[Rfam]
Record summary: Rfam assigns this 71-nucleotide RNA from Halorientalis sp. IM1011 to the family "S15-Halobacteria ribosomal protein leader". The match comes from Rfam's covariance-model search (75 bits). On this family, see Eckert and Weinberg, BMC Microbiol 2020: "Discovery of 20 novel ribosomal leader candidates in bacteria and archaea". It is annotated as a cis-regulatory leader. The source organism's lineage runs through Archaea, Methanobacteriati, Halobacteriales, Haloarculaceae and Halorientalis.

RNA sequence: GUGGGAACAGCACGACCGCAAAUCCGACGCGCCGCUACGAUCACUUUCGCGGCUUGGGAUUGCGGUAGUGU
Numbered sequence: 001g002u003g004g005g006a007a008c009a010g011c012a013c014g015a016c017c018g019c020a021a022a023u024c025c026g027a028c029g030c031g032c033c034g035c036u037a038c039g040a041u042c043a044c045u046u047u048c049g050c051g052g053c054u055u056g057g058g059a060u061u062g063c064g065g066u067a068g069u070g071u
Stems, first nucleotide, its partner, number of pairs: 010071004015066007024058002031053005037047001
Dot-bracket structure: .........((((.(((((((..((.....(((((.(.........).)))))...)).))))))).))))